[Rfam]
RNA sequence: AGCCACGUUGUCGAUUGGGAAACUCAUCGUACUAAGUUGAAAACCGAGGCAACCCUCUCCUCCAAUGGCGGGCUACCGAGGCCUUCGGGUCUCCUCGCCUAUGGCGAGCAGAGUAGAUUACAAAGGGGGCGGGGAUCUCAAAUCCUGUUUUUCGGAGUUUUCACUUAAUCUGCUCGUGGCUCCCCCA
Numbered sequence: 001a002g003c004c005a006c007g008u009u010g011u012c013g014a015u016u017g018g019g020a021a022a023c024u025c026a027u028c029g030u031a032c033u034a035a036g037u038u039g040a041a042a043a044c045c046g047a048g049g050c051a052a053c054c055c056u057c058u059c060c061u062c063c064a065a066u067g068g069c070g071g072g073c074u075a076c077c078g079a080g081g082c083c084u085u086c087g088g089g090u091c092u093c094c095u096c097g098c099c100u101a102u103g104g105c106g107a108g109c110a111g112a113g114u115a116g117a118u119u120a121c122a123a124a125g126g127g128g129g130c131g132g133g134g135a136u137c138u139c140a141a142a143u144c145c146u147g148u149u150u151u152u153c154g155g156a157g158u159u160u161u162c163a164c165u166u167a168a169u170c171u172g173c174u175c176g177u178g179g180c181u182c183c184c185c186c187a
Stems, first nucleotide, its partner, number of pairs: 054134004059129005066122002073116004081090003

Overview
This 187-nucleotide RNA sequence from Porphyromonas sp. oral taxon 279 belongs to the Rfam family "Bacteroidales-1 6S-Bacteroidales RNA suggested". The literature on the family includes a 2020 paper in Nat Commun by Ryan et al., "A high-resolution transcriptome map identifies small RNA regulation of metabolism in the gut microbe Bacteroides thetaiotaomicron". The base pairs follow the family's consensus structure, which is taken from published work. By type it is a small RNA. From the family's description: Bacteroidales-1 was first reported in a comparative genomics-based approach of genome and metagenome sequences from Weinberg et al. 2010 In a high-resolution transcriptome map study of Bacteroides thetaiotaomicron, Ryan et al. 2020 report this sRNA as 6S RNA homologue of Bacteroides, in the study they obtain evidence of small product RNAs (pRNAs) related to 6S function.